Rfam assigns this 90-nucleotide sequence from Lederbergia lenta to the family "TPP riboswitch aptamer (THI element)".
RNA sequence: AUUAUCUACUAGGGGCGCCUUAUGGCUGAGAAGUAACCCUUUGAACCUGAUCUAGUUUGUACUAGCGUAGGGAAGUAGUUUGGAUGAAUG
Number, nucleotide and partner (000 for none) at each position: 001a000002u000003u000004a000005u000006c078007u077008a076009c075010u074011a040012g039013g038014g037015g000016c000017g026018c025019c024020u000021u000022a000023u000024g019025g018026c017027u000028g000029a000030g000031a000032a000033g000034u000035a000036a000037c014038c013039c012040u011041u000042u000043g000044a000045a000046c071047c070048u069049g068050a000051u000052c065053u064054a063055g062056u000057u000058u000059g000060u000061a000062c055063u054064a053065g052066c000067g000068u049069a048070g047071g046072g000073a000074a010075g009076u008077a007078g006079u000080u000081u000082g000083g000084a000085u000086g000087a000088a000089u000090g000

Taxonomically the source falls in Lederbergia (Bacteria, Bacillati, Bacilli, Bacillaceae).